RNA sequence: UCAAAGGUUUGCUAGGGUUCCGCUGGGAAGACUAGGACUGGUCCAAGAGCAAACGGCUCACGAUUGAGCUACACGGAAGGAUAAAAGCCUGGGAGAU
Numbered sequence: 001u002c003a004a005a006g007g008u009u010u011g012c013u014a015g016g017g018u019u020c021c022g023c024u025g026g027g028a029a030g031a032c033u034a035g036g037a038c039u040g041g042u043c044c045a046a047g048a049g050c051a052a053a054c055g056g057c058u059c060a061c062g063a064u065u066g067a068g069c070u071a072c073a074c075g076g077a078a079g080g081a082u083a084a085a086a087g088c089c090u091g092g093g094a095g096a097u
Stems, first nucleotide, its partner, number of pairs: 007054006015044002020041002022038001023035004055070006072092001074095001078090003

Rfam assigns this 97-nucleotide sequence from Sulfobacillus thermosulfidooxidans to the family "Guanidine-I riboswitch aptamer". Pairs were carried over by alignment from the consensus structure. Lineage of the source: Bacteria > Bacillota > Eubacteriales > Sulfobacillus > Sulfobacillus thermosulfidooxidans.